[Rfam]
Record summary: This 65-nucleotide RNA sequence from Ictidomys tridecemlineatus belongs to the Rfam family "Small nucleolar RNA SNORD58". The sequence is in the family's curated seed alignment. By type it is a C/D-box small nucleolar RNA. About the family: snoRNA U58 is found in introns 1, 3 and 6 of the ribosomal protein RPL17 gene in humans. Clan: SNORD58 clan. Gene Ontology terms of the family: nucleolus and RNA processing.

RNA sequence: CUGCAGUGAUGCCUUUCUUAGGACACCUUUGGAUUUACCAUGAAAACUAAUACAUUCUGAGCAGC
Numbered sequence: 001c002u003g004c005a006g007u008g009a010u011g012c013c014u015u016u017c018u019u020a021g022g023a024c025a026c027c028u029u030u031g032g033a034u035u036u037a038c039c040a041u042g043a044a045a046a047c048u049a050a051u052a053c054a055u056u057c058u059g060a061g062c063a064g065c
Base pairs, nucleotide, nucleotide: 001064002063003062004061